[Rfam]
RNA sequence: ACUGGUUGGCAGUGUGGUUAGCUGGUUGUCAGAAUAAUUAAGGGAACAACGGCUAUCAACACUGCCCUACUAGU
Numbered sequence: 001a002c003u004g005g006u007u008g009g010c011a012g013u014g015u016g017g018u019u020a021g022c023u024g025g026u027u028g029u030c031a032g033a034a035u036a037a038u039u040a041a042g043g044g045a046a047c048a049a050c051g052g053c054u055a056u057c058a059a060c061a062c063u064g065c066c067c068u069a070c071u072a073g074u
Base pairs, nucleotide, nucleotide: 002073003072004071005070006069008066009065011063012062013061014060015059017057019055020054021053023052025050026049027048028047029046
Rfam assigns this 74-nucleotide RNA sequence from Dracunculus medinensis to the family "mir-34 microRNA precursor family". About the family: Human mir-34a was discovered computationally and later experimentally verified. The mature sequence is excised from the 5' arm of the hairpin. Lineage of the source: Eukaryota > Opisthokonta > Chromadorea > Spirurina > Dracunculus. Pairs were carried over by alignment from the consensus structure, which was predicted with RNAalifold. Its Rfam clan is "mir-34 clan".